Description
Small nucleolar RNA SNORA23: a 178-nucleotide sequence from Cynoglossus semilaevis. The match comes from Rfam's covariance-model search (94 bits). Rfam's curators write: The members of this family belong to the H/ACA class of snoRNAs which are thought to guide the sites of modification of uridines to pseudouridines. This family includes human snoRNA ACA23 (SNORA23) and mouse snoMBI-1. ACA23 is predicted to guide the pseudouridylation of residue U3737 and U4331 of 28S rRNA. Pairs were carried over by alignment from the consensus structure, which was predicted with RNAalifold. On this family, see Huttenhofer et al., EMBO J 2001: "RNomics: an experimental approach that identifies 201 candidates for novel, small, non-messenger RNAs in mouse". NCBI's taxonomy places the organism under Eukaryota, Opisthokonta, Deuterostomia, Actinopterygii, Cynoglossus.
RNA sequence: GGUGAAUGGUGUGCACAGUGUUGGUCUGUGUGAUGUGUUGUUGUCUAGCUGUGUUUUGCAGCCGGGCAGCACCGCUCACACUGCACCUACAGCCACAGAAUACAUGGAGAUCAUAGUACUGGCCCGAGACGUCUUUGACAUCUUCUCCUUUGGCCAGCCUCCAAACUCUCCAACAGGC
Number, nucleotide and partner (000 for none) at each position: 001g000002g000003u000004g000005a000006a000007u000008g000009g000010u000011g000012u000013g090014c000015a088016c000017a000018g000019u000020g000021u000022u000023g000024g000025u000026c000027u000028g000029u080030g079031u078032g000033a000034u000035g076036u074037g073038u000039u071040g070041u069042u000043g067044u066045c065046u064047a000048g000049c000050u060051g059052u058053g000054u000055u000056u000057u000058g052059c051060a050061g000062c000063c000064g046065g045066g044067c043068a000069g041070c040071a039072c000073c037074g036075c000076u035077c000078a031079c030080a029081c000082u000083g000084c000085a000086c000087c000088u015089a000090c013091a000092g000093c000094c000095a000096c000097a000098g000099a000100a000101u000102a000103c000104a000105u000106g171107g170108a169109g168110a167111u000112c000113a000114u000115a000116g000117u000118a000119c157120u156121g155122g154123c153124c152125c000126g148127a000128g142129a141130c000131g139132u138133c137134u000135u000136u000137g133138a132139c131140a000141u129142c128143u000144u000145c000146u000147c000148c126149u000150u000151u000152g124153g123154c122155c121156a120157g119158c000159c000160u000161c000162c000163a000164a000165a000166c000167u110168c109169u108170c107171c106172a000173a000174c000175a000176g000177g000178c000